The family of this 139-nucleotide RNA from Streptococcus pneumoniae is "Streptococcus sRNA SpF22". Rfam classes the family as a small RNA. The base pairs follow the family's consensus structure, which was predicted with mfold.
[Rfam]
RNA sequence: UGAGAUCAGCGCGUGCUUGCCAAUUCUUAUCAGAACAAGGUUAUGAGGUUAUCAAUGUUCAAGGUGGUAUGACUGCCUUUGAAGAACUCUAGACGUAAGAAUUUCUCCUACUUGGCGUGGACUGGGUAGGGGAUUUUAU
Dot-bracket structure: ........(((......)))...........((((..((((....(.((((((.........)))))).)....)))).........................(((((((((..(......)..)))))))))))))..